[Rfam]
RNA sequence: UAUAUUCAAAUUUUCCGAGCUUAGAUUUCUAAAGAAAGAAAUUCCAUGAAAUUUAAGACCAUGGGUAUAAAGGGAAACUUUUGUGCCUCCCACGUUUGGAAAGGAAGGUUUGAGUAUGUUUA
Numbered sequence: 001u002a003u004a005u006u007c008a009a010a011u012u013u014u015c016c017g018a019g020c021u022u023a024g025a026u027u028u029c030u031a032a033a034g035a036a037a038g039a040a041a042u043u044c045c046a047u048g049a050a051a052u053u054u055a056a057g058a059c060c061a062u063g064g065g066u067a068u069a070a071a072g073g074g075a076a077a078c079u080u081u082u083g084u085g086c087c088u089c090c091c092a093c094g095u096u097u098g099g100a101a102a103g104g105a106a107g108g109u110u111u112g113a114g115u116a117u118g119u120u121u122a
Base pairs, nucleotide, nucleotide: 003116004115006113011108012107013106014105015104016103020057021056022055023054024053025052026051027050028049029048034044035043036042063088064087065086066085067084068083069082070081071080072079073078089099090098

Molybdenum/Tungsten riboswitch aptamer (Moco RNA motif): a 122-nucleotide RNA sequence from Gottschalkia acidurici. A reference for the family is Regulski et al. (2008), "in molybdenum cofactor and tungsten cofactor metabolism", Mol Microbiol. The base pairs follow the family's consensus structure, which is taken from published work. Taxonomically the source falls in Gottschalkia acidurici (Bacteria, Bacillati, Gottschalkiaceae, Gottschalkia).